Rfam assigns this 266-nucleotide RNA to the family "RT-2 RNA".
RNA sequence: UUCAAUGUUUGAAAGUAACCAUGUAUAAGGGUGAAAAUAUCCAGAGAAUAUUGAAGGAACGUGCAACCAUCCGUCUGCAACGGCGGUAAAUUGAUGGCUGGCCUGAUUUAAGGCUGGCGCACCGUAUCGGUGUCCCUGAGCGGGGCGGCGGGACGAUUCUUUCAUGGCAGGUCAUGUGCUGGGCCUGUUUCAUCACCGCUUCGCAAACCUGUUUAGAAUGCACACUAUAAGUAGCAGGAAGGGCGUAGAUUCUUUGACUAAUCGGG
Numbered sequence: 001u002u003c004a005a006u007g008u009u010u011g012a013a014a015g016u017a018a019c020c021a022u023g024u025a026u027a028a029g030g031g032u033g034a035a036a037a038u039a040u041c042c043a044g045a046g047a048a049u050a051u052u053g054a055a056g057g058a059a060c061g062u063g064c065a066a067c068c069a070u071c072c073g074u075c076u077g078c079a080a081c082g083g084c085g086g087u088a089a090a091u092u093g094a095u096g097g098c099u100g101g102c103c104u105g106a107u108u109u110a111a112g113g114c115u116g117g118c119g120c121a122c123c124g125u126a127u128c129g130g131u132g133u134c135c136c137u138g139a140g141c142g143g144g145g146c147g148g149c150g151g152g153a154c155g156a157u158u159c160u161u162u163c164a165u166g167g168c169a170g171g172u173c174a175u176g177u178g179c180u181g182g183g184c185c186u187g188u189u190u191c192a193u194c195a196c197c198g199c200u201u202c203g204c205a206a207a208c209c210u211g212u213u214u215a216g217a218a219u220g221c222a223c224a225c226u227a228u229a230a231g232u233a234g235c236a237g238g239a240a241g242g243g244c245g246u247a248g249a250u251u252c253u254u255u256g257a258c259u260a261a262u263c264g265g266g
Stems, first nucleotide, its partner, number of pairs: 006043002019031002097118008130246003134243004140204005146198003150194001155163002166189007208238005215226002
By type it is a small RNA. Rfam's curators put it in the seed alignment.